[Rfam]
RNA sequence: AAUCAAGAGUUCCAGCCACGGGCCCUGGCCGGCUGGACGGCAACCCUCUCGCCGUAGCGGGGUGCUCCAGGUGACGAUUCGGCCGCCCGGUUUCCGACCGGCCCGGCAAGUACCGCGC
Numbered sequence: 001a002a003u004c005a006a007g008a009g010u011u012c013c014a015g016c017c018a019c020g021g022g023c024c025c026u027g028g029c030c031g032g033c034u035g036g037a038c039g040g041c042a043a044c045c046c047u048c049u050c051g052c053c054g055u056a057g058c059g060g061g062g063u064g065c066u067c068c069a070g071g072u073g074a075c076g077a078u079u080c081g082g083c084c085g086c087c088c089g090g091u092u093u094c095c096g097a098c099c100g101g102c103c104c105g106g107c108a109a110g111u112a113c114c115g116c117g118c
Base pairs, nucleotide, nucleotide: 001079002078003077004076009038011037012036013035014034015033016032021030022029039066040065041064044062045061046060048057049056082107083106084105085104087101088100089099090098091097
Dot-bracket structure: ((((....(.((((((....((......)).)))))))(((..(((.((......))..))).))).........))))..((((.(((((.....)))))..))))...........
The record is a 118-nucleotide sequence from Arthrobacter sunyaminii, which matches "SAM (S-adenosyl methionine) riboswitch aptamer" in Rfam. It scores 85 bits against the family's covariance model. A reference for the family is Weinberg et al. (2008), "The aptamer core of SAM-IV riboswitches mimics the ligand-binding site of SAM-I riboswitches", RNA. From the family's description: SAM-IV is a mRNA element that regulates gene expression via direct sensing of S-adenosylmethionine (SAM or AdoMet). SAM-IV riboswitches share conserved nucleotide positions with the previously described SAM-I riboswitches sequence analysis and molecular recognition experiments suggest that SAM-I and SAM-IV riboswitches share similar ligand binding sites, but have different scaffolds. Taxonomically the source falls in Arthrobacter (Bacteria, Bacillati, Actinomycetota, Micrococcaceae).